[Rfam]
A member of the RNA family "M-box riboswitch aptamer (ykoK leader)" from Sporolactobacillus putidus, 188 nucleotides long. The literature on the family includes a 2004 paper in Proc Natl Acad Sci U S A by Barrick et al., "New RNA motifs suggest an expanded scope for riboswitches in bacterial genetic control". The base pairs follow the family's consensus structure. Rfam's curators write: M-box riboswitch, also know as ykoK leader is described as a metaloregulatory RNA that sense divalent metals and function as a genetic control element of genes related to divalent metal transport in bacteria. It was first reported upstream of the B.subtilis ykoK gene and genes with related functions in other bacteria.

RNA sequence: UAAUAUCCUUGUUAGGUGAGGCUACUGUAAAGAUACACGCUACUGCCCAAAAAUGUCGAGAGACGCCAAUGGGUCAGCAGGUACUGCCGGACUAAGGUUUUACUUAAUGUAGCUGACUACACUCGCAGAAAUGCGGGUGCUUAUGCUCAAAGCUUUACAGUGCUAAAACUCAACGAGUGGGGAGAGUG
Numbered sequence: 001u002a003a004u005a006u007c008c009u010u011g012u013u014a015g016g017u018g019a020g021g022c023u024a025c026u027g028u029a030a031a032g033a034u035a036c037a038c039g040c041u042a043c044u045g046c047c048c049a050a051a052a053a054u055g056u057c058g059a060g061a062g063a064c065g066c067c068a069a070u071g072g073g074u075c076a077g078c079a080g081g082u083a084c085u086g087c088c089g090g091a092c093u094a095a096g097g098u099u100u101u102a103c104u105u106a107a108u109g110u111a112g113c114u115g116a117c118u119a120c121a122c123u124c125g126c127a128g129a130a131a132u133g134c135g136g137g138u139g140c141u142u143a144u145g146c147u148c149a150a151a152g153c154u155u156u157a158c159a160g161u162g163c164u165a166a167a168a169c170u171c172a173a174c175g176a177g178u179g180g181g182g183a184g185a186g187u188g
Stems, first nucleotide, its partner, number of pairs: 006183005011174002013095001015170003020164003025160008039113005045074005054065004080104004086098003115148002